[Rfam]
A member of the RNA family "Mammalian CPEB3 ribozyme" from Crocodylus porosus, 76 nucleotides long. The mammalian CPEB3 ribozyme is a self cleaving RNA located in the second intron of the CPEB3 gene which belongs to a family of genes regulating messenger RNA polyadenylation. Pairs were carried over by alignment from the consensus structure, which is taken from published work.
RNA sequence: GUCGCAAAUUCAAGGCUAGAGCAGAAGCACCCACAGUGCAGCCCUGCCAGAUUUCAACAAAUCUAUGAAUUCUGCA
Numbered sequence: 001g002u003c004g005c006a007a008a009u010u011c012a013a014g015g016c017u018a019g020a021g022c023a024g025a026a027g028c029a030c031c032c033a034c035a036g037u038g039c040a041g042c043c044c045u046g047c048c049a050g051a052u053u054u055c056a057a058c059a060a061a062u063c064u065a066u067g068a069a070u071u072c073u074g075c076a
Stems, first nucleotide, its partner, number of pairs: 014043004021075006027039003049064006